[Rfam]
RNA sequence: GGGGUUGUGGUGUAACUGGCAGCAUGACGGACUUUUAAUCCGUUCGGUGAGAGUUCGAUCCUCUCCGGCCCCA
Numbered sequence: 001g002g003g004g005u006u007g008u009g010g011u012g013u014a015a016c017u018g019g020c021a022g023c024a025u026g027a028c029g030g031a032c033u034u035u036u037a038a039u040c041c042g043u044u045c046g047g048u049g050a051g052a053g054u055u056c057g058a059u060c061c062u063c064u065c066c067g068g069c070c071c072c073a
Stems, first nucleotide, its partner, number of pairs: 001072007010025004027043005049065005
Rfam assigns this 73-nucleotide sequence from Stieleria maiorica to the family "tRNA". NCBI's taxonomy places the organism under Bacteria, Planctomycetota, Planctomycetia, Pirellulales, Stieleria. Transfer RNA (tRNA) molecules are approximately 80 nucleotides in length. The family's RNA type in Rfam is transfer RNA. It scores 59 bits against the family's covariance model.